[Rfam]
RNA sequence: UUGAAAUUGAAAAUAAUUUUUUUGUGAAAAAAAAAUAAAGUAUCAAACAAAGUAGCAAUACCCAAUGUCUUGCUAAAGAAAGAAAUGGGGUAUUGCUACUUU
Numbered sequence: 001u002u003g004a005a006a007u008u009g010a011a012a013a014u015a016a017u018u019u020u021u022u023u024g025u026g027a028a029a030a031a032a033a034a035a036u037a038a039a040g041u042a043u044c045a046a047a048c049a050a051a052g053u054a055g056c057a058a059u060a061c062c063c064a065a066u067g068u069c070u071u072g073c074u075a076a077a078g079a080a081a082g083a084a085a086u087g088g089g090g091u092a093u094u095g096c097u098a099c100u101u102u
Stems, first nucleotide, its partner, number of pairs: 049102013063088001065086001068083004
The record is a 102-nucleotide RNA from Musa balbisiana, which matches "Plastid-psbA-1 3UTR RNA" in Rfam. The base pairs follow the family's consensus structure, which was predicted with LocARNA. Clan: Plastid-psbA 3UTR RNA clan. NCBI's taxonomy places the organism under Eukaryota, Spermatophyta, Magnoliopsida, Zingiberales, Musa. Rfam's curators write: Plastid psbA-1 is a non-coding RNA (ncRNA) present in plastids. It was identified in inverted repeat sequences in the 3 prime untranslate region (3UTR) of photosystem II quinone-binding protein (psbA).